This 245-nucleotide sequence from Streptomyces wuyuanensis belongs to the Rfam family "Streptomyces sRNA 4677". The source organism's lineage runs through Bacteria, Bacillati, Actinomycetes, Streptomycetaceae and Streptomyces. Rfam's curators write: Located in the intergenic region between anti-sigma factor SCO4677 gene and a putative regulatory protein gene SCO4676. scr4677 expression requires the SCO4677 activity and scr4677 sRNA itself seem to affect the levels of the SCO4676-associated transcripts. The pairing is the family consensus, mapped onto this sequence. Rfam classes the family as a small RNA. For this family Rfam cites "Complex intra-operonic dynamics mediated by a small RNA in Streptomyces coelicolor" (Hindra et al., PLoS One, 2014).

RNA sequence: GCCUGUGGCGCAGGCGGUCAACCACCCCAUCACCAGGGGAAACGACCCACCACACCCCACCGCGGUGACCUCUCCCCGCGCGUCACUCACGCGGGUGUUCCUGCCCCGGAGCGCUGGAUUCCGCCGACGUCCCCAGGGCAAGGUCGGCACGACAACUCCCGCGUAUGCCAUGGCACAUGCAACGGCCCCGGCCGGGACUGGCAUCCCGAACGAGGGCCUCACCACCCAGGAAGUAGGGCUUCCCG
Numbered sequence: 001g002c003c004u005g006u007g008g009c010g011c012a013g014g015c016g017g018u019c020a021a022c023c024a025c026c027c028c029a030u031c032a033c034c035a036g037g038g039g040a041a042a043c044g045a046c047c048c049a050c051c052a053c054a055c056c057c058c059a060c061c062g063c064g065g066u067g068a069c070c071u072c073u074c075c076c077c078g079c080g081c082g083u084c085a086c087u088c089a090c091g092c093g094g095g096u097g098u099u100c101c102u103g104c105c106c107c108g109g110a111g112c113g114c115u116g117g118a119u120u121c122c123g124c125c126g127a128c129g130u131c132c133c134c135a136g137g138g139c140a141a142g143g144u145c146g147g148c149a150c151g152a153c154a155a156c157u158c159c160c161g162c163g164u165a166u167g168c169c170a171u172g173g174c175a176c177a178u179g180c181a182a183c184g185g186c187c188c189c190g191g192c193c194g195g196g197a198c199u200g201g202c203a204u205c206c207c208g209a210a211c212g213a214g215g216g217c218c219u220c221a222c223c224a225c226c227c228a229g230g231a232a233g234u235a236g237g238g239c240u241u242c243c244c245g
Stems, first nucleotide, its partner, number of pairs: 007226002010223001016070004084097005113162002116159002184218005191211001194207004229243005